[Rfam]
The record is a 111-nucleotide sequence from Arachis hypogaea, which matches "Small nucleolar RNA snoR109" in Rfam. NCBI's taxonomy places the organism under Eukaryota, Embryophyta, Mesangiospermae, eudicotyledons, Arachis. The base pairs follow the family's consensus structure, which was predicted with WAR.
RNA sequence: UGGCUGUAGCCAAAUCAAGAAAUUCGGUUAGGGAAGCUAACUGGCCGGUUGUUGUUAGAUCCAAUUUUUGGGUCUCCGUCGACACAUCUGCUUACCGAGCUUCCCACAUUC
Numbered sequence: 001u002g003g004c005u006g007u008a009g010c011c012a013a014a015u016c017a018a019g020a021a022a023u024u025c026g027g028u029u030a031g032g033g034a035a036g037c038u039a040a041c042u043g044g045c046c047g048g049u050u051g052u053u054g055u056u057a058g059a060u061c062c063a064a065u066u067u068u069u070g071g072g073u074c075u076c077c078g079u080c081g082a083c084a085c086a087u088c089u090g091c092u093u094a095c096c097g098a099g100c101u102u103c104c105c106a107c108a109u110u111c
Base pairs, nucleotide, nucleotide: 031105032104033103034102035101036100037099038098043092044091045090047088048087049086051083052082053081054080